[Rfam]
RNA sequence: UAGUGUUACAGACGUAAGUACUGUUGCACAGCCACAAGCGAUCAAAUUGAUUAAACGUAUUGUAAAUACGUCGCCUGGCUGGGAUAACCCUUCUGAUUCAGAAGGGUUAUUUUUGUUACC
Numbered sequence: 001u002a003g004u005g006u007u008a009c010a011g012a013c014g015u016a017a018g019u020a021c022u023g024u025u026g027c028a029c030a031g032c033c034a035c036a037a038g039c040g041a042u043c044a045a046a047u048u049g050a051u052u053a054a055a056c057g058u059a060u061u062g063u064a065a066a067u068a069c070g071u072c073g074c075c076u077g078g079c080u081g082g083g084a085u086a087a088c089c090c091u092u093c094u095g096a097u098u099c100a101g102a103a104g105g106g107u108u109a110u111u112u113u114u115g116u117u118a119c120c
Base pairs, nucleotide, nucleotide: 007026008024009023010022011021012019013018029081030080031079032078033077034076038074039073040072041051042050043049055071056070057069058068059067060066084110085109086108087107088106089105090104091103092102093101094100095099